[Rfam]
RNA sequence: CAAAUAAUCCGGCAAACCUAUUGAAAAAUAGGGACGCAAAGCUAUAGGGACUAAAUCCACCUUGGAUAAGUCAGCCAGUUGCAAUU
Numbered sequence: 001c002a003a004a005u006a007a008u009c010c011g012g013c014a015a016a017c018c019u020a021u022u023g024a025a026a027a028a029u030a031g032g033g034a035c036g037c038a039a040a041g042c043u044a045u046a047g048g049g050a051c052u053a054a055a056u057c058c059a060c061c062u063u064g065g066a067u068a069a070g071u072c073a074g075c076c077a078g079u080u081g082c083a084a085u086u
Base pairs, nucleotide, nucleotide: 012037013036017032018031019030020029021028022027040080041079042078043077047076048075049072050071051070056066057065058064059063